[Rfam]
RNA: Small nucleolar RNA R30/Z108
Organism: Ananas comosus
RNA sequence: GAAUAAUGCGAUGAGGAUAAAAGAGCUCCCUCUACUGAAAACAUUGAGGACUCUCGCUGGCGGAAUCGAACCAUAAACCUCAAUCGCCAUCACUGAGUAU
Numbered sequence: 001g002a003a004u005a006a007u008g009c010g011a012u013g014a015g016g017a018u019a020a021a022a023g024a025g026c027u028c029c030c031u032c033u034a035c036u037g038a039a040a041a042c043a044u045u046g047a048g049g050a051c052u053c054u055c056g057c058u059g060g061c062g063g064a065a066u067c068g069a070a071c072c073a074u075a076a077a078c079c080u081c082a083a084u085c086g087c088c089a090u091c092a093c094u095g096a097g098u099a100u
Stems, first nucleotide, its partner, number of pairs: 006100004